[Rfam]
RNA sequence: CGAUGCUCAGGGCAAACCCGUCGCGAGGCGGGGACGCAAAGCCACGGAACCCCCAGGGUCAGCCGGGCCACCAGA
Numbered sequence: 001c002g003a004u005g006c007u008c009a010g011g012g013c014a015a016a017c018c019c020g021u022c023g024c025g026a027g028g029c030g031g032g033g034a035c036g037c038a039a040a041g042c043c044a045c046g047g048a049a050c051c052c053c054c055a056g057g058g059u060c061a062g063c064c065g066g067g068c069c070a071c072c073a074g075a
Base pairs, nucleotide, nucleotide: 012037013036017032018031019030020029021028022027041068042067043066045065046064047063049059050058051057052056
A member of the RNA family "c-di-GMP-I riboswitch aptamer" from Deinococcus soli, 75 nucleotides long. The source organism's lineage runs through Bacteria, Deinococci, Deinococcales, Deinococcaceae and Deinococcus. A search with the family's covariance model found it, with a score of 55 bits. The family's consensus secondary structure is taken from published work.